[Rfam]
RNA sequence: AAGGUGUAUCCGAAAAACCUAAAAAGAGUAAGAA
Numbered sequence: 001a002a003g004g005u006g007u008a009u010c011c012g013a014a015a016a017a018c019c020u021a022a023a024a025a026g027a028g029u030a031a032g033a034a
Stems, first nucleotide, its partner, number of pairs: 002020004010032001

A member of the RNA family "DUF805b RNA", 34 nucleotides long.